This 136-nucleotide sequence from Ictidomys tridecemlineatus belongs to the Rfam family "Small nucleolar RNA SNORA43". The family's consensus secondary structure was predicted with RNAfold. About the family: ACA43 is a member of the H/ACA class of snoRNA that guide the sites of modification of uridines to pseudouridines. A search with the family's covariance model found it, with a score of 92 bits.
RNA sequence: GCUGGCCUGGGACAGCAAACACCACAGACAUGACUGCUUUGCUCUGCCUGUGAUAUCAAGGCAAAGAGGAAGUAGCUAUUUCUGUGCUUAGUUUUCAGACCAGUGCGCACUAAGAAAGAUUUAUAGCCUAAUACUU
Numbered sequence: 001g002c003u004g005g006c007c008u009g010g011g012a013c014a015g016c017a018a019a020c021a022c023c024a025c026a027g028a029c030a031u032g033a034c035u036g037c038u039u040u041g042c043u044c045u046g047c048c049u050g051u052g053a054u055a056u057c058a059a060g061g062c063a064a065a066g067a068g069g070a071a072g073u074a075g076c077u078a079u080u081u082c083u084g085u086g087c088u089u090a091g092u093u094u095u096c097a098g099a100c101c102a103g104u105g106c107g108c109a110c111u112a113a114g115a116a117a118g119a120u121u122u123a124u125a126g127c128c129u130a131a132u133a134c135u136u
Base pairs, nucleotide, nucleotide: 003063004062006060008058009057010056024051025050026049027048075127076126083118087114088113092109094107096105097104